[Rfam]
RNA sequence: UCUGAAACAAGGCAAACCCGUCGAAAGACGGCGUCGCAAAGUUACCGGCCUACCGCCGCAUCAUAACGGCAACGGCAGCGGGACUACCAGA
Numbered sequence: 001u002c003u004g005a006a007a008c009a010a011g012g013c014a015a016a017c018c019c020g021u022c023g024a025a026a027g028a029c030g031g032c033g034u035c036g037c038a039a040a041g042u043u044a045c046c047g048g049c050c051u052a053c054c055g056c057c058g059c060a061u062c063a064u065a066a067c068g069g070c071a072a073c074g075g076c077a078g079c080g081g082g083a084c085u086a087c088c089a090g091a
Base pairs, nucleotide, nucleotide: 012037013036018031019030020029021028022027040085041084042083043082045081046080047079048076049075050074055070056069057068058067
Dot-bracket structure: ...........((....(((((....)))))....))..((((.((((((....((((........))))...)))..)))))))......